[Rfam]
The family of this 132-nucleotide RNA from Steroidobacter agaridevorans is "radC RNA". The match comes from Rfam's covariance-model search (58 bits). It is annotated as a cis-regulatory element. Taxonomically the source falls in Steroidobacter (Bacteria, Pseudomonadati, Pseudomonadota, Steroidobacterales).

RNA sequence: UGCUUGGAACCAUGUCUGCUGACAUACGUCAGCUGCAUGCCCGGUAGCUGUCGAUCUUUGACGCUACCGAUCCAGUUCGCUUCAGGCAUCCCUCGGCGAACGCUCAUCGGGUACGACGCUCGAUGAAGAUGC
Numbered sequence: 001u002g003c004u005u006g007g008a009a010c011c012a013u014g015u016c017u018g019c020u021g022a023c024a025u026a027c028g029u030c031a032g033c034u035g036c037a038u039g040c041c042c043g044g045u046a047g048c049u050g051u052c053g054a055u056c057u058u059u060g061a062c063g064c065u066a067c068c069g070a071u072c073c074a075g076u077u078c079g080c081u082u083c084a085g086g087c088a089u090c091c092c093u094c095g096g097c098g099a100a101c102g103c104u105c106a107u108c109g110g111g112u113a114c115g116a117c118g119c120u121c122g123a124u125g126a127a128g129a130u131g132c
Base pairs, nucleotide, nucleotide: 011039012038013037014036018033019032020031021030022029023028044067045066046065047064048063054071055070056069096132097131098130104126105125106124107123108122109121110120111119112118